[Rfam]
RNA sequence: CGGGAUUCGAUCCCGUUGGGAUGUGGCCUUGCAGGCAGGGCUGAACCGUGAA
Numbered sequence: 001c002g003g004g005a006u007u008c009g010a011u012c013c014c015g016u017u018g019g020g021a022u023g024u025g026g027c028c029u030u031g032c033a034g035g036c037a038g039g040g041c042u043g044a045a046c047c048g049u050g051a052a
Stems, first nucleotide, its partner, number of pairs: 001015005017048003025042005
The family of this 52-nucleotide sequence is "eL15-Euryarchaeota ribosomal protein leader". Rfam classes the family as a cis-regulatory leader. Pairs were carried over by alignment from the consensus structure, which is taken from published work.